Shown here is a 124-nucleotide sequence from Prolemur simus, a member of the family "Small nucleolar RNA SNORA42/SNORA80 family".
On this family, see Schattner et al., RNA 2006: "A computational screen for mammalian pseudouridylation guide H/ACA RNAs".
Rfam describes the family as follows. The members of this family belong to the H/ACA class of snoRNAs that guide the sites of modification of uridines to pseudouridines.
Its family is annotated with RNA processing and nucleolus in the Gene Ontology.
Rfam classes the family as an H/ACA-box small nucleolar RNA.
The source organism's lineage runs through Eukaryota, Bilateria, Boreoeutheria, Lemuriformes and Prolemur.
[Rfam]
RNA sequence: GCAUGGUUUUGGAUUUUUGACAGGCCCGUUCUCUUGGGCCUCUCGUGGUGCCCCCUGACAGAGCAAACUGUGGCCCUGAACUCUGUGCCUGUAGGCUGCUGGCACUGAAGUGGGUUGCACAGUG
Numbered sequence: 001g002c003a004u005g006g007u008u009u010u011g012g013a014u015u016u017u018u019g020a021c022a023g024g025c026c027c028g029u030u031c032u033c034u035u036g037g038g039c040c041u042c043u044c045g046u047g048g049u050g051c052c053c054c055c056u057g058a059c060a061g062a063g064c065a066a067a068c069u070g071u072g073g074c075c076c077u078g079a080a081c082u083c084u085g086u087g088c089c090u091g092u093a094g095g096c097u098g099c100u101g102g103c104a105c106u107g108a109a110g111u112g113g114g115u116u117g118c119a120c121a122g123u124g
Stems, first nucleotide, its partner, number of pairs: 002057002005053002008050001015048002018045003022041003025037002071117006082107001083102002087096003